[Rfam]
RNA sequence: UAGACCAGAAGAGGCGCGUUAACCAGGCAACCCGCGAUAGAAGACUAUAUUUCGUAGCGUGGGCUAGGGGGAUUAACGCCGAGAAAGUACGUAUUAUAGUCAACGUAUUUUCGGUCGUGCAGGCUGAAUCCUGCCGACUGUCACCUGUUUGGUGGAGAGCUUCUGGCCUU
Numbered sequence: 001u002a003g004a005c006c007a008g009a010a011g012a013g014g015c016g017c018g019u020u021a022a023c024c025a026g027g028c029a030a031c032c033c034g035c036g037a038u039a040g041a042a043g044a045c046u047a048u049a050u051u052u053c054g055u056a057g058c059g060u061g062g063g064c065u066a067g068g069g070g071g072a073u074u075a076a077c078g079c080c081g082a083g084a085a086a087g088u089a090c091g092u093a094u095u096a097u098a099g100u101c102a103a104c105g106u107a108u109u110u111u112c113g114g115u116c117g118u119g120c121a122g123g124c125u126g127a128a129u130c131c132u133g134c135c136g137a138c139u140g141u142c143a144c145c146u147g148u149u150u151g152g153u154g155g156a157g158a159g160c161u162u163c164u165g166g167c168c169u170u
Stems, first nucleotide, its partner, number of pairs: 006165006016079007024071001031063006083112010113139004119134005141155005
Rfam assigns this 170-nucleotide RNA sequence from Arsukibacterium sp. MJ3 to the family "Lysine riboswitch aptamer". Rfam's curators write: Riboswitches are metabolite binding domains within certain messenger RNAs that serve as precision sensors for their corresponding targets. Allosteric rearrangement of mRNA structure is mediated by ligand binding, and this results in modulation of gene expression. Lineage of the source: Bacteria > Pseudomonadati > Chromatiales > Chromatiaceae > Arsukibacterium. The base pairs follow the family's consensus structure, which is taken from published work.